The family of this 80-nucleotide sequence from Hermetia illucens is "drz-agam-1 ribozyme". A search with the family's covariance model found it, with a score of 39 bits. Its family is annotated with catalytic activity in the Gene Ontology. The family's consensus secondary structure is taken from published work.
RNA sequence: CACAAUACAAACCCUAUCUCCACCUCCACGUGGUGAUCGCUGGGAGUUCUUUCGUAACGAAAAGCUGCAGACGGAGAAGG
Numbered sequence: 001c002a003c004a005a006u007a008c009a010a011a012c013c014c015u016a017u018c019u020c021c022a023c024c025u026c027c028a029c030g031u032g033g034u035g036a037u038c039g040c041u042g043g044g045a046g047u048u049c050u051u052u053c054g055u056a057a058c059g060a061a062a063a064g065c066u067g068c069a070g071a072c073g074g075a076g077a078a079g080g
Stems, first nucleotide, its partner, number of pairs: 013080003017076001019074002022034003046066001048064001050062005